[Rfam]
RNA: U4 spliceosomal RNA
RNA sequence: AUUUUUGCACUUGGGGCAAUGACGCAGCUAGUGAGGUUCUAACCGAGGAACAUCUAUUGCUAGUUGAAAACUAUUUCCAAACUCCCUUUUAGGUAGACUUGUUAAUAUGGGCCGACCUAGCUUAGUCUUGCCCAAGCCCUUGUGGGU
Number, nucleotide and partner (000 for none) at each position: 001a000002u000003u000004u000005u000006u000007g000008c000009a000010c000011u000012u000013g000014g000015g000016g000017c000018a000019a000020u000021g054022a053023c000024g051025c000026a000027g000028c048029u047030a000031g000032u000033g000034a000035g044036g043037u042038u000039c000040u000041a000042a037043c036044c035045g000046a000047g029048g028049a000050a000051c024052a000053u022054c021055u000056a000057u000058u000059g000060c000061u000062a000063g000064u000065u000066g000067a000068a000069a000070a000071c000072u000073a000074u000075u000076u000077c000078c000079a000080a000081a000082c000083u000084c000085c000086c000087u000088u000089u120090u000091a118092g117093g116094u115095a000096g113097a000098c111099u110100u109101g108102u107103u000104a000105a000106u000107a102108u101109g100110g099111g098112c000113c096114g000115a094116c093117c092118u091119a000120g089121c000122u000123u000124a000125g000126u000127c000128u000129u000130g000131c000132c000133c000134a000135a000136g147137c146138c145139c144140u000141u000142g000143u000144g139145g138146g137147u136